The record is an 80-nucleotide RNA sequence from Heterocephalus glaber, which matches "Small nucleolar RNA SNORD72" in Rfam.
About the family: snoRNA HBII-240 belongs to the CD family of snoRNAs. It is the human orthologue of the mouse MBII-240 and is predicted to guide 2'O-ribose methylation of the large 28S rRNA at residue U4590.
Rfam 15.1 lists 726 matches to the family in 499 species.
Pairs were carried over by alignment from the consensus structure.
A reference for the family is Huttenhofer et al. (2001), "RNomics: an experimental approach that identifies 201 candidates for novel, small, non-messenger RNAs in mouse", EMBO J.
Its family is annotated with RNA processing and nucleolus in the Gene Ontology.
Nucleotides: 080
Base pairs, nucleotide, nucleotide: 002079003078004077005076006075007074008073
Number, partner (000 for none) and nucleotide at each position: 001000g002079g003078c004077u005076u006075a007074u008073c009000a010000g011000u012000g013000a014000u015000g016000u017000u018000g019000u020000g021000a022000a023000a024000a025000u026000a027000a028000a029000u030000g031000u032000c033000u034000g035000a036000a037000c038000a039000u040000a041000u042000g043000a044000c045000u046000g047000c048000a049000a050000c051000a052000g053000u054000g055000a056000u057000u058000g059000u060000g061000g062000c063000g064000u065000u066000u067000a068000a069000c070000u071000g072000a073008g074007a075006u076005a077004a078003g079002c080000u